[Rfam]
nhaA-I RNA: a 57-nucleotide RNA sequence from Povalibacter uvarum. The family's consensus secondary structure is taken from published work. Lineage of the source: Bacteria > Pseudomonadati > Gammaproteobacteria > Steroidobacteraceae > Povalibacter. Acidobacteria, Alphaproteobacteria, Betaproteobacteria and Gammaproteobacteria, Verrucomicrobia, cand. division NC10. A search with the family's covariance model found it, with a score of 46 bits.
RNA sequence: GGGUGUCGCACUGCACUGCGCAGUUGGACAGGUAACGGACUGGUCGGGCCGCCAGUC
Numbered sequence: 001g002g003g004u005g006u007c008g009c010a011c012u013g014c015a016c017u018g019c020g021c022a023g024u025u026g027g028a029c030a031g032g033u034a035a036c037g038g039a040c041u042g043g044u045c046g047g048g049c050c051g052c053c054a055g056u057c
Base pairs, nucleotide, nucleotide: 005029006028007027010024011023012022038057039056040055041054042053043052044051